[Rfam]
RNA sequence: CUCGCAGCCUAUGCCCCGCCACCGAGGGGACUGAAAC
Numbered sequence: 001c002u003c004g005c006a007g008c009c010u011a012u013g014c015c016c017c018g019c020c021a022c023c024g025a026g027g028g029g030a031c032u033g034a035a036a037c
Stems, first nucleotide, its partner, number of pairs: 012033002014029004
Rfam assigns this 37-nucleotide RNA sequence from Rhodospirillum rubrum to the family "CRISPR RNA direct repeat element". The family's consensus secondary structure was predicted with WAR. Taxonomically the source falls in Rhodospirillum rubrum (Bacteria, Pseudomonadati, Rhodospirillales, Rhodospirillaceae).